[Rfam]
RNA sequence: ACAACAGCGGGAAUGAAGAAAAACAUUUCAUUCUCCGAACGCGGUCAAGUCUUGGGAGGAUGCGAUCUAGGCGCGGUCACUCGCAGCCGCCGGAAUACGGAAAUGAUCGGACGCGUAUCUUGGAUGCAGGGCUCAAUGCCCUGCAUUUUUUU
Numbered sequence: 001a002c003a004a005c006a007g008c009g010g011g012a013a014u015g016a017a018g019a020a021a022a023a024c025a026u027u028u029c030a031u032u033c034u035c036c037g038a039a040c041g042c043g044g045u046c047a048a049g050u051c052u053u054g055g056g057a058g059g060a061u062g063c064g065a066u067c068u069a070g071g072c073g074c075g076g077u078c079a080c081u082c083g084c085a086g087c088c089g090c091c092g093g094a095a096u097a098c099g100g101a102a103a104u105g106a107u108c109g110g111a112c113g114c115g116u117a118u119c120u121u122g123g124a125u126g127c128a129g130g131g132c133u134c135a136a137u138g139c140c141c142u143g144c145a146u147u148u149u150u151u152u
Base pairs, nucleotide, nucleotide: 003152004151006149011033012032013031014030015029016028017027018026040115041114042113043112049061050060051059052058064108065107066106067105070088071087072086073084074083075082090100091099092098125145126144127143128142129141130140131139132138
Dot-bracket structure: ..((.(....((((((((.......))))))))......((((.....((((.....))))..((((..((((((......))).))).(((.....)))....))))...)))).........((((((((.....))))))))...).))
The family of this 152-nucleotide RNA from Tianweitania populi is "Alphaproteobacterial sRNA ar9". The match comes from Rfam's covariance-model search (122 bits). The source organism's lineage runs through Bacteria, Pseudomonadati, Pseudomonadota, Hyphomicrobiales and Tianweitania. Rfam classes the family as a small RNA.